Overview: The record is a 110-nucleotide RNA sequence from Nakamurella leprariae, which matches "TPP riboswitch aptamer (THI element)" in Rfam. Taxonomically the source falls in Nakamurella (Bacteria, Actinomycetota, Actinomycetes, Nakamurellales). The match comes from Rfam's covariance-model search (58 bits). Rfam links the family to the GO term thiamine pyrophosphate binding.
[Rfam]
RNA sequence: ACGCCGAACCACGGGAGUCCCGGAGCGGCGGGACUGAGAGGGGGCAUUCGGCCCCGACCGUCGAACCUGAUCCGGGUCAUGCCGGCGAAGGAAGGGGCUCCAGCGUCGUG
Number, nucleotide and partner (000 for none) at each position: 001a000002c000003g000004c000005c000006g098007a000008a000009c095010c094011a061012c060013g059014g058015g000016a000017g034018u033019c032020c031021c030022g000023g000024a000025g000026c000027g000028g000029c000030g021031g020032g019033a018034c017035u000036g000037a000038g000039a000040g000041g055042g054043g053044g052045c051046a000047u000048u000049c000050g000051g045052c044053c043054c042055c041056g000057a000058c014059c013060g012061u011062c000063g000064a000065a000066c091067c090068u089069g000070a000071u000072c085073c084074g083075g082076g000077u000078c000079a000080u000081g000082c075083c074084g073085g072086c000087g000088a000089a068090g067091g066092a000093a000094g010095g009096g000097g000098c006099u000100c000101c000102a000103g000104c000105g000106u000107c000108g000109u000110g000